[Rfam]
RNA sequence: GCAUGGGCUUGGAUUCAUGGCAGGCCCGUUCCCCUGGGUCUCUCAUCGUGCCCUGUGCCAGAGCAAACUGUGGCCUGGAACCAUUGCCCAGCCUCUGCCAGCAGGUUGCAGGCACUGAAACGGGUUACACAGUG
Numbered sequence: 001g002c003a004u005g006g007g008c009u010u011g012g013a014u015u016c017a018u019g020g021c022a023g024g025c026c027c028g029u030u031c032c033c034c035u036g037g038g039u040c041u042c043u044c045a046u047c048g049u050g051c052c053c054u055g056u057g058c059c060a061g062a063g064c065a066a067a068c069u070g071u072g073g074c075c076u077g078g079a080a081c082c083a084u085u086g087c088c089c090a091g092c093c094u095c096u097g098c099c100a101g102c103a104g105g106u107u108g109c110a111g112g113c114a115c116u117g118a119a120a121c122g123g124g125u126u127a128c129a130c131a132g133u134g
Stems, first nucleotide, its partner, number of pairs: 001058004005053004015048001017046004022041003025037002071127006082117002087112002089108006
RNA: Small nucleolar RNA SNORA42/SNORA80 family
Organism: Myotis brandtii